The record is a 161-nucleotide RNA from Bugula neritina, which matches "U1 spliceosomal RNA" in Rfam. NCBI's taxonomy places the organism under Eukaryota, Opisthokonta, Spiralia, Flustrina, Bugula.
RNA sequence: ACUUACCUGGCACAGGGCAUCCGUGAUCAAGAAGACGGAUCCCCCAGGAAGAGGCCUUACCAUUGCACUUCGGUUUGGUUGACGCCUGCGAUUAUCCCAAAUGUGGAUAACUCGGGUGCGUAAUUUUUGGUAGUGGGGGACUGCGUUCGCGCUAUCCCCUA
Numbered sequence: 001a002c003u004u005a006c007c008u009g010g011c012a013c014a015g016g017g018c019a020u021c022c023g024u025g026a027u028c029a030a031g032a033a034g035a036c037g038g039a040u041c042c043c044c045c046a047g048g049a050a051g052a053g054g055c056c057u058u059a060c061c062a063u064u065g066c067a068c069u070u071c072g073g074u075u076u077g078g079u080u081g082a083c084g085c086c087u088g089c090g091a092u093u094a095u096c097c098c099a100a101a102u103g104u105g106g107a108u109a110a111c112u113c114g115g116g117u118g119c120g121u122a123a124u125u126u127u128u129g130g131u132a133g134u135g136g137g138g139g140a141c142u143g144c145g146u147u148c149g150c151g152c153u154a155u156c157c158c159c160u161a
Stems, first nucleotide, its partner, number of pairs: 010119004015044003019040006046087003051083001053080003059075001060073002089114003092110003096106002135160006143152003

Source information:
Its Rfam clan is "U1 clan". The family's consensus secondary structure is taken from published work. Rfam describes the family as follows. U1 is a small nuclear RNA (snRNA) component of the spliceosome (involved in pre-mRNA splicing). Its 5' end forms complementary base pairs with the 5' splice junction, thus defining the 5' donor site of an intron. There are significant differences in sequence and secondary structure between metazoan and yeast U1 snRNAs, the latter being much longer (568 nucleotides as compared to 164 nucleotides in human). Nevertheless, secondary structure predictions suggest that all U1 snRNAs share a 'common core' consisting of helices I, II, the proximal region of III, and IV. This family does not contain the larger yeast sequences. The family's RNA type in Rfam is spliceosomal small nuclear RNA.